[Rfam]
RNA: DUF3800-VIII RNA
Organism: Mucilaginibacter arboris
RNA sequence: AAAGCUCUGUAGCUCACGAACGCCUAAGUUCCACUUGGGAAAUUGAUGUAGUGAGAAUGGAGCUUU
Numbered sequence: 001a002a003a004g005c006u007c008u009g010u011a012g013c014u015c016a017c018g019a020a021c022g023c024c025u026a027a028g029u030u031c032c033a034c035u036u037g038g039g040a041a042a043u044u045g046a047u048g049u050a051g052u053g054a055g056a057a058u059g060g061a062g063c064u065u066u
Stems, first nucleotide, its partner, number of pairs: 001066010013055005023039007